[Rfam]
RNA sequence: GGGUGCCGCGGAGAUCGCCGCGGCAGGUUUUCGCGCAGGUCGGGCCGCCGCG
Numbered sequence: 001g002g003g004u005g006c007c008g009c010g011g012a013g014a015u016c017g018c019c020g021c022g023g024c025a026g027g028u029u030u031u032c033g034c035g036c037a038g039g040u041c042g043g044g045c046c047g048c049c050g051c052g
Base pairs, nucleotide, nucleotide: 005024006023007022008021009020010019011018034052035051036050038049039048040047
RNA: nhaA-I RNA
Organism: Rubrivivax benzoatilyticus